Rfam assigns this 118-nucleotide RNA from Cephalotus follicularis to the family "MIR408 microRNA precursor family". Pairs were carried over by alignment from the consensus structure, which was predicted with WAR. NCBI's taxonomy places the organism under Eukaryota, Viridiplantae, Euphyllophyta, Cephalotaceae, Cephalotus. For this family Rfam cites "High throughput approaches reveal splicing of primary microRNA transcripts and tissue specific expression of mature microRNAs in Vitis vinifera" (Mica et al., BMC Genomics, 2009).

RNA sequence: AGUAAGGGGCAAGCCAAGACAGGGAACAGGCUGAGCAUGAAUGGAACUACUAACACAUUUUUCUGUUGUGGUUCUACUCAUGCACUGCCUCUUCCCUGGCUGGUGCUCUUCCUCUUAU
Numbered sequence: 001a002g003u004a005a006g007g008g009g010c011a012a013g014c015c016a017a018g019a020c021a022g023g024g025a026a027c028a029g030g031c032u033g034a035g036c037a038u039g040a041a042u043g044g045a046a047c048u049a050c051u052a053a054c055a056c057a058u059u060u061u062u063c064u065g066u067u068g069u070g071g072u073u074c075u076a077c078u079c080a081u082g083c084a085c086u087g088c089c090u091c092u093u094c095c096c097u098g099g100c101u102g103g104u105g106c107u108c109u110u111c112c113u114c115u116u117a118u
Stems, first nucleotide, its partner, number of pairs: 017101002020098007028090004033085001035083006044074002